This 54-nucleotide RNA sequence from Triplophysa rosa belongs to the Rfam family "UnaL2 LINE 3' element". Rfam's curators write: The eel long interspersed element (LINE) UnaL2 and its partner short interspersed element (SINE) share a conserved 3' tail containing a stem-loop that is critical for their retrotransposition. The literature on the family includes a 2004 paper in RNA by Baba et al., "Solution structure of an RNA stem-loop derived from the 3' conserved region of eel LINE UnaL2". It is annotated as a cis-regulatory element. Gene Ontology term of the family: transposition, RNA-mediated.
RNA sequence: AAUACAAUGCAAUGUAAGUCGCUUUGGAUAAAAGCGUCUGCCAAAUGUAUGAAU
Numbered sequence: 001a002a003u004a005c006a007a008u009g010c011a012a013u014g015u016a017a018g019u020c021g022c023u024u025u026g027g028a029u030a031a032a033a034g035c036g037u038c039u040g041c042c043a044a045a046u047g048u049a050u051g052a053a054u
Base pairs, nucleotide, nucleotide: 013043014041015040016039020036021035022034023033024032025031